[Rfam]
RNA sequence: AGUGAAGGUAGAGGUGCGGACUUUAUCAGUAGGAGCCUGGAGAAGGAUGGGAUUCUGUGAAAGGCUCUGAAAGGAAAGUUCGCCGAAGCUGGAAGAGGCUCAUUUCUUUUCCGGCUGGUCCUGUGUUGAAUAAACUCAGGAUUGUCAGGAUGUAUGUCCUGGAGCGCUAUCUCACUG
Numbered sequence: 001a002g003u004g005a006a007g008g009u010a011g012a013g014g015u016g017c018g019g020a021c022u023u024u025a026u027c028a029g030u031a032g033g034a035g036c037c038u039g040g041a042g043a044a045g046g047a048u049g050g051g052a053u054u055c056u057g058u059g060a061a062a063g064g065c066u067c068u069g070a071a072a073g074g075a076a077a078g079u080u081c082g083c084c085g086a087a088g089c090u091g092g093a094a095g096a097g098g099c100u101c102a103u104u105u106c107u108u109u110u111c112c113g114g115c116u117g118g119u120c121c122u123g124u125g126u127u128g129a130a131u132a133a134a135c136u137c138a139g140g141a142u143u144g145u146c147a148g149g150a151u152g153u154a155u156g157u158c159c160u161g162g163a164g165c166g167c168u169a170u171c172u173c174a175c176u177g
Base pairs, nucleotide, nucleotide: 006172007171008170009169010168011167016083017082018081019080020079021078022077023076024075032068033067034066035065036064037063038062087116088115089114090113091112092111093110094109095108096107097106098105117143118142119141120140121139122138123137125135126134127133145162146161147160148159149158150157151156
RNA: Lysine riboswitch aptamer